[Rfam]
RNA: malK-I RNA
RNA sequence: AUACAUGGUGUCCGCCUACUCCACGAUAUAGACGGGCAUACAUACGAAAAGGAGGUUACCCCAUCCCGCAGGGCCCGCGGUGCGGCAGUGUGGAGACCUGUCGCAAGGCGGUUCGCUGAGAUUGGCACAGCGACGCGAGGGCACGGCAAAGGACCGCCGCGCUCAGGGCCGGACGCAAUGGCA
Dot-bracket structure: .......(((((((.(((..........))).)))))))..........................[[[[..(((((]]]]((((((((.((....))))))))))..(((..((((((.........)))))))))..((((.(((..........))).)))).))))).............